[Rfam]
RNA sequence: GAGGGAUAGGCCCCUCGGUGUCGUCUAUCAGGAGGAGACACCAAACCACCCUGAGCUGCGGCCUAAAGAGCGACCGUGGUGAGCGUCAUGGGAAAAGGCAGGAGGAAAAAAACUGUCAGGU
Numbered sequence: 001g002a003g004g005g006a007u008a009g010g011c012c013c014c015u016c017g018g019u020g021u022c023g024u025c026u027a028u029c030a031g032g033a034g035g036a037g038a039c040a041c042c043a044a045a046c047c048a049c050c051c052u053g054a055g056c057u058g059c060g061g062c063c064u065a066a067a068g069a070g071c072g073a074c075c076g077u078g079g080u081g082a083g084c085g086u087c088a089u090g091g092g093a094a095a096a097g098g099c100a101g102g103a104g105g106a107a108a109a110a111a112a113c114u115g116u117c118a119g120g121u
Stems, first nucleotide, its partner, number of pairs: 001016005017042006024035003047120001049091002052088003055080002058077003062072001064070001097117005

Group II catalytic intron D1-D4-2: a 121-nucleotide RNA from Syntrophotalea acetylenica.
It scores 86 bits against the family's covariance model.
About the family: Group II introns are found in rRNA, tRNA and mRNA of organelles in fungi, plants and protists, and also in mRNA in bacteria.
The base pairs follow the family's consensus structure.